Nucleotides: 095
Base pairs, nucleotide, nucleotide: 010086011085012084013083014082015081016080017079018078020076021075022074023073024072025071026070027069028068029067030066032064033063
Number, partner (000 for none) and nucleotide at each position: 001000u002000u003000g004000u005000u006000u007000a008000c009000u010086g011085g012084u013083g014082c015081g016080g017079c018078a019000a020076c021075a022074u023073c024072a025071a026070g027069a028068u029067u030066c031000a032064c033063a034000u035000g036000g037000u038000u039000g040000c041000c042000c043000u044000a045000u046000u047000g048000c049000a050000a051000g052000u053000g054000u055000u056000u057000a058000g059000g060000g061000a062000a063033u064032g065000a066030g067029a068028a069027u070026c071025u072024u073023g074022a075021u076020g077000a078018u079017g080016c081015u082014g083013c084012a085011u086010c087000a088000g089000a090000a091000a092000u093000c094000a095000a